Record summary:
The record is a 57-nucleotide RNA sequence from Lampropedia hyalina, which matches "nhaA-I RNA" in Rfam.
RNA sequence: GGGUGUCCGCUGCAUGGUGCGGCAGGGCAGGUUCUUCGCGCUGGUCGGGCCGCCACG
Dot-bracket structure: ....(((((((.........))).))))..........((.((((......))))))
Rfam describes the family as follows. Acidobacteria, Alphaproteobacteria, Betaproteobacteria and Gammaproteobacteria, Verrucomicrobia, cand. division NC10. The match comes from Rfam's covariance-model search (46 bits). The base pairs follow the family's consensus structure, which is taken from published work. The organism belongs to Lampropedia hyalina, within Bacteria.